[Rfam]
RNA sequence: GGCCGCGGUCGUGACUGGCGCGGGUGGAGGACCACCGGGGAGCGACCGAGCACCACCCCUGUCCGUGCACCGCCCGCCUGGGUGCCUGGG
Number, nucleotide and partner (000 for none) at each position: 001g000002g000003c000004c050005g000006c048007g047008g046009u045010c044011g043012u042013g000014a000015c039016u038017g078018g077019c076020g075021c000022g000023g000024g035025u034026g033027g032028a000029g000030g000031a000032c027033c026034a025035c024036c000037g000038g016039g015040g000041a000042g012043c011044g010045a009046c008047c007048g006049a000050g004051c000052a000053c000054c000055a000056c000057c000058c000059c000060u000061g000062u000063c000064c000065g000066u000067g085068c084069a083070c082071c081072g000073c000074c000075c020076g019077c018078c017079u000080g000081g071082g070083u069084g068085c067086c000087u000088g000089g000090g000
A member of the RNA family "ZMP/ZTP riboswitch aptamer (pfl RNA motif)" from Cellulomonas sp. KH9, 90 nucleotides long. The match comes from Rfam's covariance-model search (50 bits). Lineage of the source: Bacteria > Bacillati > Actinomycetes > Cellulomonadaceae > Cellulomonas.